The family of this 90-nucleotide RNA sequence from Celeribacter baekdonensis is "Glycine riboswitch aptamer". The source organism's lineage runs through Bacteria, Pseudomonadota, Rhodobacterales, Roseobacteraceae and Celeribacter baekdonensis. A search with the family's covariance model found it, with a score of 39 bits.
RNA sequence: GCGCAAAACUCUGGAGAGAGGUGCCUGUUUGCAAAGAGGGCAUCCGCCGAAGGGAUAACGAUCUCAGGCGCACAAGACAGAGGGGGCAUC
Dot-bracket structure: ........(((((......(((((((...........))))))).(((((..((.......)))).)))........)))))........